Rfam assigns this 95-nucleotide RNA from Yersinia pestis to the family "OmrA-B family".
Lineage of the source: Bacteria > Enterobacterales > Yersinia > Yersinia pestis subsp. pestis > Yersinia pestis subsp. pestis bv. Medievalis.
RNA sequence: CCCAGAGGUAUUAAUUGGUGAAUAAUCAACAUUCGCUGUGUAUCAAAGAUCGUUUUUUAUUUGCACCGACCUACGCAGAUGCGUAGGUUUUUUUU
Numbered sequence: 001c002c003c004a005g006a007g008g009u010a011u012u013a014a015u016u017g018g019u020g021a022a023u024a025a026u027c028a029a030c031a032u033u034c035g036c037u038g039u040g041u042a043u044c045a046a047a048g049a050u051c052g053u054u055u056u057u058u059a060u061u062u063g064c065a066c067c068g069a070c071c072u073a074c075g076c077a078g079a080u081g082c083g084u085a086g087g088u089u090u091u092u093u094u095u
Stems, first nucleotide, its partner, number of pairs: 016068005021057001028054003031050003069088008

The family's RNA type in Rfam is small RNA. Rfam 15.1 lists 153 matches to the family in 128 species. Pairs were carried over by alignment from the consensus structure, which was predicted with WAR.